The family of this 96-nucleotide RNA sequence from Ructibacterium gallinarum is "Glycine riboswitch aptamer". A search with the family's covariance model found it, with a score of 54 bits.
RNA sequence: AAAUUUUACUCUGGAGAGUACCUGAAAAAGGGCGCCGAAGGUGUACGGCAGCAGAAAUGCUGUUAAUCUCUCAGGCAAAAGGACAGAGACAAUCCU
Numbered sequence: 001a002a003a004u005u006u007u008a009c010u011c012u013g014g015a016g017a018g019u020a021c022c023u024g025a026a027a028a029a030g031g032g033c034g035c036c037g038a039a040g041g042u043g044u045a046c047g048g049c050a051g052c053a054g055a056a057a058u059g060c061u062g063u064u065a066a067u068c069u070c071u072c073a074g075g076c077a078a079a080a081g082g083a084c085a086g087a088g089a090c091a092a093u094c095c096u
Base pairs, nucleotide, nucleotide: 006091009088010087011086012085013084021031022030023029034076035075036074037072038071041070043068048063049062050061051060052059053058